[Rfam]
RNA sequence: GCCUAAACCUGAUUGCAGCGGAAAGCCCGUAAACGAAGCGUAGCGCAGUGCGGACUUGCAGCGGAAAGCAGGAACAAGC
Numbered sequence: 001g002c003c004u005a006a007a008c009c010u011g012a013u014u015g016c017a018g019c020g021g022a023a024a025g026c027c028c029g030u031a032a033a034c035g036a037a038g039c040g041u042a043g044c045g046c047a048g049u050g051c052g053g054a055c056u057u058g059c060a061g062c063g064g065a066a067a068g069c070a071g072g073a074a075c076a077a078g079c
Base pairs, nucleotide, nucleotide: 009071010070011069013067014066018062019061023057024056025055027053028052029051030050031049
RNA: Flavo-1 RNA
Organism: Mucilaginibacter mali